[Rfam]
Nucleotides: 064
Stems, first nucleotide, its partner, number of pairs: 001062014016047002019044006029037002
Number, partner (000 for none) and nucleotide at each position: 001062a002061u003060u004059u005058g006057a007056a008055a009054c010053g011052u012051u013050u014049u015000a016047g017046c018000c019044a020043a021042a022041a023040a024039u025000c026000u027000u028000g029037c030036c031000a032000u033000g034000g035000u036030g037029g038000u039024g040023u041022u042021u043020u044019u045000u046017g047016c048000a049014g050013a051012a052011a053010c054009g055008u056007u057006u058005c059004a060003g061002a062001u063000u064000u

This 64-nucleotide RNA sequence from Scleropages formosus belongs to the Rfam family "mir-722 microRNA precursor family". NCBI's taxonomy places the organism under Eukaryota, Bilateria, Craniata, Gnathostomata, Scleropages.